[Rfam]
RNA sequence: GCAAAUAGUGAGGGGAUUUUUGUAGGUGUGGCUAUUGUCGCCUAUUUUUCCUUGCGAUUACGCAGCCAAUGCGUAAAUAACGCAAUAAUACAAC
Numbered sequence: 001g002c003a004a005a006u007a008g009u010g011a012g013g014g015g016a017u018u019u020u021u022g023u024a025g026g027u028g029u030g031g032c033u034a035u036u037g038u039c040g041c042c043u044a045u046u047u048u049u050c051c052u053u054g055c056g057a058u059u060a061c062g063c064a065g066c067c068a069a070u071g072c073g074u075a076a077a078u079a080a081c082g083c084a085a086u087a088a089u090a091c092a093a094c
Stems, first nucleotide, its partner, number of pairs: 008091003028041005052085005060074003

This 94-nucleotide RNA sequence from Staphylococcus warneri belongs to the Rfam family "Fst antitoxin sRNA".
Rfam describes the family as follows. It is located on the opposite strand of SprA1 sRNA.
Pairs were carried over by alignment from the consensus structure, which was predicted with RNAalifold.